A member of the RNA family "SAM riboswitch aptamer (S box leader)" from Povalibacter uvarum, 116 nucleotides long.

RNA sequence: CGCUCAUCGAGACCGGCGGAGGGUAAGGCCCUUGGAAGCCGGGGCAACCGUCGAGGCUAACCACCUCGAAAAGGUGCCAACUCCUGCGGAGACCGUCAGGUCCCGACAGAUGAGUU
Numbered sequence: 001c002g003c004u005c006a007u008c009g010a011g012a013c014c015g016g017c018g019g020a021g022g023g024u025a026a027g028g029c030c031c032u033u034g035g036a037a038g039c040c041g042g043g044g045c046a047a048c049c050g051u052c053g054a055g056g057c058u059a060a061c062c063a064c065c066u067c068g069a070a071a072a073g074g075u076g077c078c079a080a081c082u083c084c085u086g087c088g089g090a091g092a093c094c095g096u097c098a099g100g101u102c103c104c105g106a107c108a109g110a111u112g113a114g115u116u
Stems, first nucleotide, its partner, number of pairs: 002115007013042005021031003026085003043078004048074002051069006082108001087105003091102003
Background
A search with the family's covariance model found it, with a score of 77 bits.